[Rfam]
RNA sequence: AAAUAACGGGUUCGUCACGCGUGUUGUCCGGACGGUAAUGGAAAACCGUUCUGCUCAGGUUCAUGCUCCUGCAGGCCUGACGGAUACUCAGUCCGAACGUUGUUAUCAGGUGCGUCACCAGCUCACGCUUAAAGGCUGGCUUC
Numbered sequence: 001a002a003a004u005a006a007c008g009g010g011u012u013c014g015u016c017a018c019g020c021g022u023g024u025u026g027u028c029c030g031g032a033c034g035g036u037a038a039u040g041g042a043a044a045a046c047c048g049u050u051c052u053g054c055u056c057a058g059g060u061u062c063a064u065g066c067u068c069c070u071g072c073a074g075g076c077c078u079g080a081c082g083g084a085u086a087c088u089c090a091g092u093c094c095g096a097a098c099g100u101u102g103u104u105a106u107c108a109g110g111u112g113c114g115u116c117a118c119c120a121g122c123u124c125a126c127g128c129u130u131a132a133a134g135g136c137u138g139g140c141u142u143c
Stems, first nucleotide, its partner, number of pairs: 025112004030107002048077001050075005058067003080103004118139001120137003
Dot-bracket structure: ........................((((.((................(.(((((...(((....)))...))))).)..((((................))))..)).)))).....(.(((............))).)....